[Rfam]
RNA sequence: CGAGCCGACCGGGCGGUCGCGACGGGUCCUCACGGAUCCGCCGAGGAACGUCCGGGCUCCACAGAGCAGGGUGGUGGGUAACGCCCACCCGGGGUGACCCGCGGGACAGUGCCACAGAAAACAGACCGCCUGCGGUCGCGAAAGCGGCAGCAGGUAAGGGUGAAACGGUGGUGUAAGAGACCACCAGCGACCGAGGUGACUCGGCCGGCUCGGUAAACCCCACUCGGAGCAAGGUCAAGAUCGGUGCCUCCGGGCACCGUGCGCGAGUGUUCGAGGGCUGCUCGCCCGAGCUCGCGGGUAGACCGCACGAGGCUGUCGGCAACGGCAGUCCUAGAUGGAUGACCGUCUCCCCGGGCCGCGCAAGCAACCCGGGUGACAAAACCCGGCGUAUAGGUCGACUCGUCCG
Numbered sequence: 001c002g003a004g005c006c007g008a009c010c011g012g013g014c015g016g017u018c019g020c021g022a023c024g025g026g027u028c029c030u031c032a033c034g035g036a037u038c039c040g041c042c043g044a045g046g047a048a049c050g051u052c053c054g055g056g057c058u059c060c061a062c063a064g065a066g067c068a069g070g071g072u073g074g075u076g077g078g079u080a081a082c083g084c085c086c087a088c089c090c091g092g093g094g095u096g097a098c099c100c101g102c103g104g105g106a107c108a109g110u111g112c113c114a115c116a117g118a119a120a121a122c123a124g125a126c127c128g129c130c131u132g133c134g135g136u137c138g139c140g141a142a143a144g145c146g147g148c149a150g151c152a153g154g155u156a157a158g159g160g161u162g163a164a165a166c167g168g169u170g171g172u173g174u175a176a177g178a179g180a181c182c183a184c185c186a187g188c189g190a191c192c193g194a195g196g197u198g199a200c201u202c203g204g205c206c207g208g209c210u211c212g213g214u215a216a217a218c219c220c221c222a223c224u225c226g227g228a229g230c231a232a233g234g235u236c237a238a239g240a241u242c243g244g245u246g247c248c249u250c251c252g253g254g255c256a257c258c259g260u261g262c263g264c265g266a267g268u269g270u271u272c273g274a275g276g277g278c279u280g281c282u283c284g285c286c287c288g289a290g291c292u293c294g295c296g297g298g299u300a301g302a303c304c305g306c307a308c309g310a311g312g313c314u315g316u317c318g319g320c321a322a323c324g325g326c327a328g329u330c331c332u333a334g335a336u337g338g339a340u341g342a343c344c345g346u347c348u349c350c351c352c353g354g355g356c357c358g359c360g361c362a363a364g365c366a367a368c369c370c371g372g373g374u375g376a377c378a379a380a381a382c383c384c385g386g387c388g389u390a391u392a393g394g395u396c397g398a399c400u401c402g403u404c405c406g
Base pairs, nucleotide, nucleotide: 001402002401003400004399006397007396008395009394010393011391012347013346014345015344016343017342018341020043021042023040024039025038026037027036028035048389049388050387052386053385054384055383056382057229058228059227060226064283065282066281067280069225070224071223072222073221074088075087076086077085078084089103090101091100092099093098104220105219109218110217111214112213113212126159127158128155129154130153131152132151133150135148136147137146138145139144167185168184169183170182171181172180187209188207189206191204192203193202194201195200233304234303235302236301263295264294265293266292267291268290275287276286277285278284311330312329313328314327315326316325317324318323